Rfam assigns this 45-nucleotide sequence from Lates calcarifer to the family "Histone 3' UTR stem-loop". The family has 50 seed sequences and 44,596 matches in Rfam 15.1. Rfam describes the family as follows. The mRNAs of metazoan histone genes lack a poly-A tail. 3' end processing occurs at a site between a highly conserved stem-loop (modelled by this family) and a purine rich region around 20 nts downstream (the histone downstream element, or HDE). The stem-loop is bound by a 31 kDa stem-loop binding protein (SLBP - also termed the histone hairpin binding protein, or HBP). Together with U7 snRNA binding of the HDE, SLBP binding nucleate s the formation of the processing complex. The histone 3' UTR stem-loop is also involved in nucleocytoplasmic transport of the mRNA, and in stability regulation and translation efficiency in the cytoplasm. It is annotated as a cis-regulatory element. Taxonomically the source falls in Lates (Eukaryota, Bilateria, Neopterygii, Acanthomorphata). The family's consensus secondary structure is taken from published work.
RNA sequence: CCAACGGCUCUUUUAAGAGCCACGCACUCAGUCUGUAAAGGCGAA
Numbered sequence: 001c002c003a004a005c006g007g008c009u010c011u012u013u014u015a016a017g018a019g020c021c022a023c024g025c026a027c028u029c030a031g032u033c034u035g036u037a038a039a040g041g042c043g044a045a
Stems, first nucleotide, its partner, number of pairs: 006021006